[Rfam]
RNA sequence: AACGACCGGCCGGACAUUCGCGUGCCAACGCAGAUGACCGGCCCACAAGUGGAGGCUCCGAUCUCCCACCUGGCUGCUCCUAGGGGCGGCGGGUCACCGGUCAGGCGGUCGCCGCAGCGCGGCGGACCGUCGGAUGUGCGCCCCGCGAUCACCGCGGAGGUGCUCCGGUAAGUGUAUGGAGCCCCUUCAGUGAUCGGUCGGGGCAUUUUUU
Number, nucleotide and partner (000 for none) at each position: 001a000002a000003c000004g102005a101006c100007c099008g098009g097010c000011c000012g039013g038014a000015c000016a000017u000018u000019c000020g000021c000022g000023u000024g000025c000026c000027a000028a000029c000030g000031c000032a000033g000034a000035u000036g000037a000038c013039c012040g095041g094042c093043c092044c091045a000046c072047a071048a000049g069050u068051g067052g066053a064054g063055g000056c000057u000058c000059c000060g000061a000062u000063c054064u053065c000066c052067c051068a050069c049070c000071u047072g046073g090074c089075u088076g087077c086078u085079c084080c000081u000082a000083g000084g079085g078086g077087c076088g075089g074090c073091g044092g043093g042094u041095c040096a000097c009098c008099g007100g006101u005102c004103a000104g131105g130106c129107g128108g127109u000110c124111g123112c122113c121114g120115c119116a000117g000118c000119g115120c114121g113122g112123c111124g110125g000126a000127c108128c107129g106130u105131c104132g000133g000134a000135u000136g000137u000138g000139c000140g204141c203142c202143c201144c200145g199146c196147g195148a194149u000150c000151a000152c000153c192154g191155c190156g188157g187158a186159g185160g184161u000162g182163c181164u180165c179166c178167g000168g000169u000170a000171a000172g000173u000174g000175u000176a000177u000178g166179g165180a164181g163182c162183c000184c160185c159186u158187u157188c156189a000190g155191u154192g153193a000194u148195c147196g146197g000198u000199c145200g144201g143202g142203g141204c140205a000206u000207u000208u000209u000210u000211u000

Overview
Rfam assigns this 211-nucleotide sequence from Streptomyces silvensis to the family "Streptomyces RNA 1601". The organism belongs to Streptomyces, within Bacteria. Rfam describes the family as follows. Identified by deep sequencing of transcriptome at the end of exponential growth phase. Appears longer on northern blot than sequencing transcript. Streptomyces specific. For this family Rfam cites "Deep sequencing-based identification of small non-coding RNAs in Streptomyces coelicolor" (Vockenhuber et al., RNA Biol, 2011). The match comes from Rfam's covariance-model search (168 bits).